Shown here is a 52-nucleotide RNA sequence, a member of the family "nhaA-I RNA".
It is annotated as a riboswitch.
From the family's description: Acidobacteria, Alphaproteobacteria, Betaproteobacteria and Gammaproteobacteria, Verrucomicrobia, cand. division NC10.
The base pairs follow the family's consensus structure, which is taken from published work.
Nucleotides: 052
Base pairs, nucleotide, nucleotide: 005023006022007021008020009019010018011017033052034051036049037048038047039046
Number, partner (000 for none) and nucleotide at each position: 001000g002000g003000g004000u005023g006022u007021g008020g009019u010018g011017c012000a013000g014000g015000g016000c017011g018010c019009g020008c021007u022006g023005c024000a025000g026000g027000c028000u029000u030000c031000a032000g033052g034051g035000a036049a037048g038047g039046u040000c041000g042000g043000g044000c045000c046039g047038c048037u049036u050000c051034c052033c